This 84-nucleotide sequence belongs to the Rfam family "skipping-rope RNA".
RNA sequence: GUUAUUUGAGGUGGUAAAAUACGUUGCAACCACGCACCCUAUGGGUUAAAAGAGAUGCAGGAGCCGCGACGCCUGCCAAAUAAC
Numbered sequence: 001g002u003u004a005u006u007u008g009a010g011g012u013g014g015u016a017a018a019a020u021a022c023g024u025u026g027c028a029a030c031c032a033c034g035c036a037c038c039c040u041a042u043g044g045g046u047u048a049a050a051a052g053a054g055a056u057g058c059a060g061g062a063g064c065c066g067c068g069a070c071g072c073c074u075g076c077c078a079a080a081u082a083a084c
Stems, first nucleotide, its partner, number of pairs: 001084008011033005023070005035052001036046004057076005
Dot-bracket structure: ((((((((..(((((.......[[[[[.))))).(((((...)))).....)....(((((....]]]]].)))))))))))))

The family's consensus secondary structure is taken from published work.